The record is a 139-nucleotide RNA sequence from Eleutherodactylus coqui, which matches "Small nucleolar RNA SNORD94" in Rfam. Its family is annotated with nucleolus and RNA processing in the Gene Ontology. The base pairs follow the family's consensus structure, which was predicted with RNAalifold. Rfam classes the family as a C/D-box small nucleolar RNA. A reference for the family is Galardi et al. (2002), "Purified box C/D snoRNPs are able to reproduce site-specific 2'-O-methylation of target RNA in vitro", Mol Cell Biol. The match comes from Rfam's covariance-model search (89 bits).
RNA sequence: GUGGCAAUGAUGAAUUGCGCAGGGGUACGGACCUCGGCUGAAUAAUGGGAGCCGACUGCAGUGCUGGAUACUGAGAUGGCUGACGUGUGGUUGGCUGCUUGGAACUGGGCUGCAGGAACUUGUCGCCCAACUGAGCCAC
Numbered sequence: 001g002u003g004g005c006a007a008u009g010a011u012g013a014a015u016u017g018c019g020c021a022g023g024g025g026u027a028c029g030g031a032c033c034u035c036g037g038c039u040g041a042a043u044a045a046u047g048g049g050a051g052c053c054g055a056c057u058g059c060a061g062u063g064c065u066g067g068a069u070a071c072u073g074a075g076a077u078g079g080c081u082g083a084c085g086u087g088u089g090g091u092u093g094g095c096u097g098c099u100u101g102g103a104a105c106u107g108g109g110c111u112g113c114a115g116g117a118a119c120u121u122g123u124c125g126c127c128c129a130a131c132u133g134a135g136c137c138a139c
Stems, first nucleotide, its partner, number of pairs: 001139005